[Rfam]
RNA sequence: UGUGCUAGAAUGAAGAAGUUGCCUAGCAAUCCUUGGUGCUUAGUUCCUUUCACCAAGCAUAUUAUACGCGUAAAAAAUGACACCAAAGGAGAGAUACCAAUG
Numbered sequence: 001u002g003u004g005c006u007a008g009a010a011u012g013a014a015g016a017a018g019u020u021g022c023c024u025a026g027c028a029a030u031c032c033u034u035g036g037u038g039c040u041u042a043g044u045u046c047c048u049u050u051c052a053c054c055a056a057g058c059a060u061a062u063u064a065u066a067c068g069c070g071u072a073a074a075a076a077a078u079g080a081c082a083c084c085a086a087a088g089g090a091g092a093g094a095u096a097c098c099a100a101u102g
Stems, first nucleotide, its partner, number of pairs: 018030005032057007044091006068083001070081002
RNA: PreQ1-II (pre queuosine) riboswitch aptamer
Organism: Streptococcus ictaluri